A member of the RNA family "NiCo (Nickel/Cobalt) riboswitch aptamer" from Acetanaerobacterium elongatum, 95 nucleotides long. Rfam links the family to the GO terms cobalt ion binding and metal ion homeostasis. For this family Rfam cites "Bacterial riboswitches cooperatively bind Ni(2+) or Co(2+) ions and control expression of heavy metal transporters" (Furukawa et al., Mol Cell, 2015). Its Rfam clan is "NiCo_riboswitches".
[Rfam]
RNA sequence: ACAGUACAAACUGAACAGGCGGCAAGCCGAAAACGGGUUUGCAGAGGCCGGGCCGAUAUGCGGCAGCGGAUGAUUAUCACAUCUGCGGGACAGUU
Numbered sequence: 001a002c003a004g005u006a007c008a009a010a011c012u013g014a015a016c017a018g019g020c021g022g023c024a025a026g027c028c029g030a031a032a033a034c035g036g037g038u039u040u041g042c043a044g045a046g047g048c049c050g051g052g053c054c055g056a057u058a059u060g061c062g063g064c065a066g067c068g069g070a071u072g073a074u075u076a077u078c079a080c081a082u083c084u085g086c087g088g089g090a091c092a093g094u095u
Stems, first nucleotide, its partner, number of pairs: 010094004016089001018049003022042006052064004066086006